[Rfam]
Rfam assigns this 245-nucleotide RNA sequence from Bacillus infantis to the family "T-box leader". The match comes from Rfam's covariance-model search (104 bits). A reference for the family is Gerdeman et al. (2003), "Solution structure of the Bacillus subtilis T-box antiterminator RNA: seven nucleotide bulge characterized by stacking and flexibility", J Mol Biol. Lineage of the source: Bacteria > Bacillati > Bacillaceae > Bacillus > Bacillus infantis. Rfam classes the family as a cis-regulatory leader.
RNA sequence: UUGACUGCGUUGAAAGGGACAGUACAGCAUUCUAUAUGCUUUUAAGAUUAAGCGAUCCAGGGACGGUGGGAGCCUGGAAUAAGCAGAUUGCUGGAAGAUCACCCUAGAGUACCUGCCUGAACGUUCUCCGAACCAGUAAGGUGCAGGCGUUUCAUCCGCGUUAAGGAUGCUUUGAGCGGGCAGAAUGAUUCUUUUCUGUCUACAAGGGUGGUACCGCGGGAGCUAUAAGCCUUCUCGUCCCUUUA
Numbered sequence: 001u002u003g004a005c006u007g008c009g010u011u012g013a014a015a016g017g018g019a020c021a022g023u024a025c026a027g028c029a030u031u032c033u034a035u036a037u038g039c040u041u042u043u044a045a046g047a048u049u050a051a052g053c054g055a056u057c058c059a060g061g062g063a064c065g066g067u068g069g070g071a072g073c074c075u076g077g078a079a080u081a082a083g084c085a086g087a088u089u090g091c092u093g094g095a096a097g098a099u100c101a102c103c104c105u106a107g108a109g110u111a112c113c114u115g116c117c118u119g120a121a122c123g124u125u126c127u128c129c130g131a132a133c134c135a136g137u138a139a140g141g142u143g144c145a146g147g148c149g150u151u152u153c154a155u156c157c158g159c160g161u162u163a164a165g166g167a168u169g170c171u172u173u174g175a176g177c178g179g180g181c182a183g184a185a186u187g188a189u190u191c192u193u194u195u196c197u198g199u200c201u202a203c204a205a206g207g208g209u210g211g212u213a214c215c216g217c218g219g220g221a222g223c224u225a226u227a228a229g230c231c232u233u234c235u236c237g238u239c240c241c242u243u244u245a
Stems, first nucleotide, its partner, number of pairs: 007110002015105004025093005041079001056078006113146002115142004148160003179200007205242004216238007